[Rfam]
RNA: mir-4637 microRNA precursor family
Organism: Homo sapiens
RNA sequence: CCCUUACUUGGAUCUGCAAUUAGUAUUUUAAUCAUAGAUUGUAUUUAGUUAGUUUUUAAUACUAACUGCAGAUUCAAGUGAGGG
Numbered sequence: 001c002c003c004u005u006a007c008u009u010g011g012a013u014c015u016g017c018a019a020u021u022a023g024u025a026u027u028u029u030a031a032u033c034a035u036a037g038a039u040u041g042u043a044u045u046u047a048g049u050u051a052g053u054u055u056u057u058a059a060u061a062c063u064a065a066c067u068g069c070a071g072a073u074u075c076a077a078g079u080g081a082g083g084g
Stems, first nucleotide, its partner, number of pairs: 001084018020065008030055002035047005